[Rfam]
RNA: Metazoan signal recognition particle RNA
RNA sequence: GCUGGGGGUGUGGCGGCUCCUGUAAUCCGGCUACUCGGAGGCUAGUUAUGAAGGAGGGUCUUGACGCACAGAUUCAACUGUUGGUGUUAGGGUCACGUUGACUGGGCGUCCGCGCUAAGCUCGCCAUCAAUAUGGGCACCCUUGAGGAAUCUUGGGCGGCCAGGUUGGCUAAAGAGAGGCGAACCGGGCCAGAGGGGAAACCCAGCAGCCAAAAGUCUCCGUGGCGGGCAGUAGUGGGAUCGCGCCCGGGAGUGGACGGCAUCAGUAGCUUGGGCAAAUAUUAGACUCGACACAUAACUUU
Numbered sequence: 001g002c003u004g005g006g007g008g009u010g011u012g013g014c015g016g017c018u019c020c021u022g023u024a025a026u027c028c029g030g031c032u033a034c035u036c037g038g039a040g041g042c043u044a045g046u047u048a049u050g051a052a053g054g055a056g057g058g059u060c061u062u063g064a065c066g067c068a069c070a071g072a073u074u075c076a077a078c079u080g081u082u083g084g085u086g087u088u089a090g091g092g093u094c095a096c097g098u099u100g101a102c103u104g105g106g107c108g109u110c111c112g113c114g115c116u117a118a119g120c121u122c123g124c125c126a127u128c129a130a131u132a133u134g135g136g137c138a139c140c141c142u143u144g145a146g147g148a149a150u151c152u153u154g155g156g157c158g159g160c161c162a163g164g165u166u167g168g169c170u171a172a173a174g175a176g177a178g179g180c181g182a183a184c185c186g187g188g189c190c191a192g193a194g195g196g197g198a199a200a201c202c203c204a205g206c207a208g209c210c211a212a213a214a215g216u217c218u219c220c221g222u223g224g225c226g227g228g229c230a231g232u233a234g235u236g237g238g239a240u241c242g243c244g245c246c247c248g249g250g251a252g253u254g255g256a257c258g259g260c261a262u263c264a265g266u267a268g269c270u271u272g273g274g275c276a277a278a279u280a281u282u283a284g285a286c287u288c289g290a291c292a293c294a295u296a297a298c299u300u301u
Stems, first nucleotide, its partner, number of pairs: 001042003004021006026039003044299007056288006066275002069272002071269001078268009088259001090257001093255004098250001102249008110238002113236005119229009128167004133162003137158001139156003144151002176219005187210003194203003